A member of the RNA family "epsC RNA" from Bacillus sp. J14TS2, 119 nucleotides long.
Pairs were carried over by alignment from the consensus structure, which is taken from published work.
The organism belongs to Bacillus, within Bacteria.
A search with the family's covariance model found it, with a score of 105 bits.
RNA sequence: CGGUUAUGUCUCCAAUCCGUUAUCAACGGAGGCACUCGGUUAUCCUGUGGGAGGGAAAAGCCCCUACCUUAGACACAUUCGUUGUCAAGAGGAUAAUGUGAGGGCGGGUUAGAUGCCCG
Numbered sequence: 001c002g003g004u005u006a007u008g009u010c011u012c013c014a015a016u017c018c019g020u021u022a023u024c025a026a027c028g029g030a031g032g033c034a035c036u037c038g039g040u041u042a043u044c045c046u047g048u049g050g051g052a053g054g055g056a057a058a059a060g061c062c063c064c065u066a067c068c069u070u071a072g073a074c075a076c077a078u079u080c081g082u083u084g085u086c087a088a089g090a091g092g093a094u095a096a097u098g099u100g101a102g103g104g105c106g107g108g109u110u111a112g113a114u115g116c117c118c119g
Stems, first nucleotide, its partner, number of pairs: 001019003007034007035102004039097008049069003053065003072086004105119005